[Rfam]
RNA sequence: UGUCCUCUGCAGUGUGCGAUCGCGCACCUUACAUAUUGCCUUGCUCCUAUUGAACGACUCCGGGACGACCACGCAGACGCCGGUGUGCAUGUCCGCCACGAGCGGAAAGCCUGAAGGCGCUGCCGACUCUUCCCACCUGAUCCUCUGGAUCAAGGUCGUUUGAUGCGCACCGCCACAGCGCGGAGGACGC
Number, nucleotide and partner (000 for none) at each position: 001u000002g188003u187004c186005c185006u184007c183008u182009g181010c180011a000012g176013u175014g174015u000016g000017c172018g171019a000020u000021c000022g000023c000024g000025c000026a000027c000028c000029u000030u000031a000032c000033a000034u000035a000036u000037u000038g156039c155040c154041u000042u152043g151044c000045u149046c148047c147048u000049a000050u000051u000052g000053a000054a000055c000056g000057a000058c000059u000060c000061c000062g134063g133064g132065a000066c000067g129068a128069c000070c125071a000072c000073g123074c000075a000076g121077a000078c119079g118080c117081c116082g000083g000084u000085g000086u000087g110088c109089a000090u000091g000092u106093c105094c104095g103096c102097c000098a000099c000100g000101a000102g096103c095104g094105g093106a092107a000108a000109g088110c087111c000112u000113g000114a000115a000116g081117g080118c079119g078120c000121u076122g000123c073124c000125g070126a000127c000128u068129c067130u000131u000132c064133c063134c062135a000136c000137c000138u000139g000140a000141u000142c000143c000144u000145c000146u000147g047148g046149a045150u000151c043152a042153a000154g040155g039156u038157c000158g000159u000160u000161u000162g000163a000164u000165g000166c000167g000168c000169a000170c000171c018172g017173c000174c014175a013176c012177a000178g000179c000180g010181c009182g008183g007184a006185g005186g004187a003188c002189g000190c000
6S / SsrS RNA: a 190-nucleotide sequence from Dokdonella koreensis. The family's RNA type in Rfam is non-coding RNA gene. E. coli 6S RNA was the first non coding RNA to be sequenced, but its function was unknown until recently.